[Rfam]
RNA sequence: GCGAAUAUAAGAACCCGUCUUUUAACUUUUAACUACAAAAGUUAAGAACCGGCUCUUAAAACUCUUAUUUAAGAACCGGUUCUUAGCUUUUGCAUGUAGUUAAAAGUUAAGAGACGGGUUCUUAUAUUGC
Dot-bracket structure: ((.((((((((((((((((((((((((((((((((((.((.(((((((...............................)))))))...))...))))))))))))))))))))))))))))))))))))
Numbered sequence: 001g002c003g004a005a006u007a008u009a010a011g012a013a014c015c016c017g018u019c020u021u022u023u024a025a026c027u028u029u030u031a032a033c034u035a036c037a038a039a040a041g042u043u044a045a046g047a048a049c050c051g052g053c054u055c056u057u058a059a060a061a062c063u064c065u066u067a068u069u070u071a072a073g074a075a076c077c078g079g080u081u082c083u084u085a086g087c088u089u090u091u092g093c094a095u096g097u098a099g100u101u102a103a104a105a106g107u108u109a110a111g112a113g114a115c116g117g118g119u120u121c122u123u124a125u126a127u128u129g130c
Stems, first nucleotide, its partner, number of pairs: 001130002004128034039091002042086007
Shown here is a 130-nucleotide sequence from Brassica cretica, a member of the family "MIR9563 microRNA precursor family". A search with the family's covariance model found it, with a score of 106 bits.